Description: terC RNA: a 59-nucleotide sequence from Silicimonas algicola. It is annotated as a cis-regulatory element. NCBI's taxonomy places the organism under Bacteria, Pseudomonadati, Alphaproteobacteria, Paracoccaceae, Silicimonas. A search with the family's covariance model found it, with a score of 56 bits. Pairs were carried over by alignment from the consensus structure, which is taken from published work.

RNA sequence: UUCGGUGACCGGGCCCCUCUGGCGGAAGUGGCGGCGCUUCCGUGAUGUCGGCACCGCGA
Numbered sequence: 001u002u003c004g005g006u007g008a009c010c011g012g013g014c015c016c017c018u019c020u021g022g023c024g025g026a027a028g029u030g031g032c033g034g035c036g037c038u039u040c041c042g043u044g045a046u047g048u049c050g051g052c053a054c055c056g057c058g059a
Stems, first nucleotide, its partner, number of pairs: 006053002009051004022043008